RNA sequence: GGCGGUCUUCGGUAGUGGCUGUCGGAACCCGACGCAGGGACUUUCUCUGGGGGCCAUCCGGCCGCUUCGAUCGACGGCCGUA
Numbered sequence: 001g002g003c004g005g006u007c008u009u010c011g012g013u014a015g016u017g018g019c020u021g022u023c024g025g026a027a028c029c030c031g032a033c034g035c036a037g038g039g040a041c042u043u044u045c046u047c048u049g050g051g052g053g054c055c056a057u058c059c060g061g062c063c064g065c066u067u068c069g070a071u072c073g074a075c076g077g078c079c080g081u082a
Base pairs, nucleotide, nucleotide: 002081003080004079005078006077007076009074010073011072012071013070017066018065019064021062022061023060024059025058026057